[Rfam]
RNA sequence: UGCAAGCGCACUCUGUGUCACGUUGAAUCGAAAGAUAAUCACAUGUGAUGACAAUUUGUAAACUUGCUAAAUUAAAUGUAGGCUGCGACUUAUCCAUGUGCUCAAGUUCUAAAUUCCAACUGAGAACAUUGAAUACGCGCCAUACAAGACUAA
Numbered sequence: 001u002g003c004a005a006g007c008g009c010a011c012u013c014u015g016u017g018u019c020a021c022g023u024u025g026a027a028u029c030g031a032a033a034g035a036u037a038a039u040c041a042c043a044u045g046u047g048a049u050g051a052c053a054a055u056u057u058g059u060a061a062a063c064u065u066g067c068u069a070a071a072u073u074a075a076a077u078g079u080a081g082g083c084u085g086c087g088a089c090u091u092a093u094c095c096a097u098g099u100g101c102u103c104a105a106g107u108u109c110u111a112a113a114u115u116c117c118a119a120c121u122g123a124g125a126a127c128a129u130u131g132a133a134u135a136c137g138c139g140c141c142a143u144a145c146a147a148g149a150c151u152a153a
Base pairs, nucleotide, nucleotide: 002067003066004065005064006063010059011058014053015052016051017049018048019047020046021045022044023043025042073152074151078143079142082140083139086137087136093132094131096129097128098127099126101124102123103122106120107119
Dot-bracket structure: .(((((...((..((((((((((.(................)))))))).)))....))...))))).....((...((..((..((.....((.((((.(((..((...........)).))).)))).))...)).)).)).......)).